Shown here is a 153-nucleotide sequence from Faecalicatena orotica, a member of the family "Clostridiales-1 RNA". Rfam classes the family as a small RNA. A search with the family's covariance model found it, with a score of 128 bits. Pairs were carried over by alignment from the consensus structure, which is taken from published work.
RNA sequence: UGAUGCCAGGGUCAAAAGGUCAUACAAUGCAUGCUCGCAUGCAAUUGGAUGACUUUGGGACCCGUAAAACAUGAGAAAGUAGCCCGAUUAGGGCGGAUUUCGAAUGUUUUUAGGAUUUUGGGAGCACGAAGUGCGGAGAAAUCCGUAGCAUCA
Number, nucleotide and partner (000 for none) at each position: 001u153002g152003a151004u150005g149006c148007c000008a000009g000010g062011g061012u060013c059014a000015a000016a056017a055018g054019g053020u052021c051022a050023u049024a000025c047026a046027a045028u044029g042030c041031a040032u039033g038034c000035u000036c000037g000038c033039a032040u031041g030042c029043a000044a028045u027046u026047g025048g000049a023050u022051g021052a020053c019054u018055u017056u016057g000058g000059g013060a012061c011062c010063c000064g000065u000066a110067a109068a108069a107070c106071a105072u104073g000074a000075g101076a100077a099078a098079g000080u000081a000082g094083c093084c092085c091086g000087a000088u000089u000090a000091g085092g084093g083094c082095g000096g000097a000098u078099u077100u076101c075102g000103a000104a072105u071106g070107u069108u068109u067110u066111u000112a000113g144114g143115a142116u141117u140118u139119u138120g000121g000122g000123a000124g134125c133126a132127c131128g000129a000130a000131g127132u126133g125134c124135g000136g000137a000138g119139a118140a117141a116142u115143c114144c113145g000146u000147a000148g006149c005150a004151u003152c002153a001